The family of this 78-nucleotide RNA from Schistosoma mansoni is "mir-3492 microRNA precursor family".
[Rfam]
RNA sequence: CGAUUUUUGAAUCCGUGCAGAAAUUUCGUCAGACAUCAACCCAUUAGGGCUGAUCAGACUUCCAAGAUAGGUGAAGCU
Number, nucleotide and partner (000 for none) at each position: 001c000002g077003a000004u075005u074006u073007u000008u071009g000010a000011a068012u067013c066014c000015g000016u064017g063018c000019a000020g061021a060022a000023a000024u058025u057026u056027c000028g054029u053030c052031a000032g000033a000034c000035a000036u000037c000038a000039a000040c000041c000042c000043a000044u000045u000046a000047g000048g000049g000050c000051u000052g030053a029054u028055c000056a026057g025058a024059c000060u021061u020062c000063c017064a016065a000066g013067a012068u011069a000070g000071g008072u000073g006074a005075a004076g000077c002078u000

Record summary:
It scores 45 bits against the family's covariance model.